The family of this 86-nucleotide sequence from Mola mola is "Small nucleolar RNA SNORD100". A search with the family's covariance model found it, with a score of 80 bits. The literature on the family includes a 2002 paper in Mol Cell Biol by Galardi et al., "Purified box C/D snoRNPs are able to reproduce site-specific 2'-O-methylation of target RNA in vitro". Rfam 15.1 lists 838 matches to the family in 626 species. Taxonomically the source falls in Mola (Eukaryota, Metazoa, Craniata, Euacanthomorphacea).
[Rfam]
RNA sequence: UAUAUCGAUGAUGAUAGCUUGGCUCCCUCUACUGAAUUUUUAUGUGGAAAUCUGCCAUUGUUACCCAAUUUUCUGUCUGAGAUAUG
Numbered sequence: 001u002a003u004a005u006c007g008a009u010g011a012u013g014a015u016a017g018c019u020u021g022g023c024u025c026c027c028u029c030u031a032c033u034g035a036a037u038u039u040u041u042a043u044g045u046g047g048a049a050a051u052c053u054g055c056c057a058u059u060g061u062u063a064c065c066c067a068a069u070u071u072u073c074u075g076u077c078u079g080a081g082a083u084a085u086g
Stems, first nucleotide, its partner, number of pairs: 001086006